[Rfam]
RNA: msiK RNA
RNA sequence: GCGGCACAUCCUUUACAACGGAUCGUCCGGCACGUUCCUGCCGGUGAAGGAAAGGACAA
Number, nucleotide and partner (000 for none) at each position: 001g000002c000003g000004g000005c000006a000007c000008a000009u051010c050011c049012u048013u047014u046015a045016c000017a000018a000019c000020g000021g000022a000023u000024c000025g000026u000027c044028c043029g042030g041031c040032a039033c000034g000035u000036u000037c000038c000039u032040g031041c030042c029043g028044g027045u015046g014047a013048a012049g011050g010051a009052a000053a000054g000055g000056a000057c000058a000059a000